[Rfam]
RNA sequence: GGGAAAUGAGGACGGGGCUGCGGAGAUGAGCCCCCCGGGGUCCACCUCGGGCCAGUAGGCUCA
Numbered sequence: 001g002g003g004a005a006a007u008g009a010g011g012a013c014g015g016g017g018c019u020g021c022g023g024a025g026a027u028g029a030g031c032c033c034c035c036c037g038g039g040g041u042c043c044a045c046c047u048c049g050g051g052c053c054a055g056u057a058g059g060c061u062c063a
Base pairs, nucleotide, nucleotide: 014047015046016042017041018040019039021037022036023035028062029061030060031059032058

The record is a 63-nucleotide RNA sequence from Phocoena sinus, which matches "Ma3 gene ribosomal frameshift signal" in Rfam. Lineage of the source: Eukaryota > Opisthokonta > Chordata > Odontoceti > Phocoena.